[Rfam]
RNA sequence: AAUAACUCUACAUCAAAUACACUAUAUAACUCCCUAAAGUUAUAUCAGAUGUACACUAAUACUCCCACAUGCAUAAGUAGUGAUAUUUAUGUGUGAAGCUGGGUGAAGACGGCUAACUUAGAGCGUAACAUUAAGUUGACGAAAGGGUAAACAAUCCUCUCAAAUGGGUCGGGUGGAGGUAUA
Numbered sequence: 001a002a003u004a005a006c007u008c009u010a011c012a013u014c015a016a017a018u019a020c021a022c023u024a025u026a027u028a029a030c031u032c033c034c035u036a037a038a039g040u041u042a043u044a045u046c047a048g049a050u051g052u053a054c055a056c057u058a059a060u061a062c063u064c065c066c067a068c069a070u071g072c073a074u075a076a077g078u079a080g081u082g083a084u085a086u087u088u089a090u091g092u093g094u095g096a097a098g099c100u101g102g103g104u105g106a107a108g109a110c111g112g113c114u115a116a117c118u119u120a121g122a123g124c125g126u127a128a129c130a131u132u133a134a135g136u137u138g139a140c141g142a143a144a145g146g147g148u149a150a151a152c153a154a155u156c157c158u159c160u161c162a163a164a165u166g167g168g169u170c171g172g173g174u175g176g177a178g179g180u181a182u183a
Base pairs, nucleotide, nucleotide: 009053010052011051012050013049014048054175055174056173057172064103065102066101067100068095069094070093071092072091073090074089075088076087077086078085079084110171111170112169113168114167118162120160121159122158123157124141125140126139130137145156146155
A member of the RNA family "Group II catalytic intron D1-D4-5", 183 nucleotides long.
A search with the family's covariance model found it, with a score of 71 bits.
Rfam's curators write: Group II introns are found in rRNA, tRNA and mRNA of organelles in fungi, plants and protists, and also in mRNA in bacteria.
Its family is annotated with Group II intron splicing in the Gene Ontology.
Rfam 15.1 lists 720 matches to the family in 418 species.
For this family Rfam cites "The ins and outs of group II introns" (Bonen and Vogel, Trends Genet, 2001).